The family of this 131-nucleotide RNA from Janibacter indicus is "FMN riboswitch aptamer (RFN element)". The match comes from Rfam's covariance-model search (70 bits).
[Rfam]
RNA sequence: CACGUGCCACGUGACGCGGUGAAACUCCGCACCGGCGGUGAGAGCCCGCGACCCGACUGCUGCGGCAGGCGGUGAACUCCGGUCAAGAACCCCGGGGCCGACGGUGACAGUCCGGACGAGAGCGGCACGCG
Numbered sequence: 001c002a003c004g005u006g007c008c009a010c011g012u013g014a015c016g017c018g019g020u021g022a023a024a025c026u027c028c029g030c031a032c033c034g035g036c037g038g039u040g041a042g043a044g045c046c047c048g049c050g051a052c053c054c055g056a057c058u059g060c061u062g063c064g065g066c067a068g069g070c071g072g073u074g075a076a077c078u079c080c081g082g083u084c085a086a087g088a089a090c091c092c093c094g095g096g097g098c099c100g101a102c103g104g105u106g107a108c109a110g111u112c113c114g115g116a117c118g119a120g121a122g123c124g125g126c127a128c129g130c131g
Stems, first nucleotide, its partner, number of pairs: 003129006010122001017029003031111002033100002035049004044098002053072002078096005102114003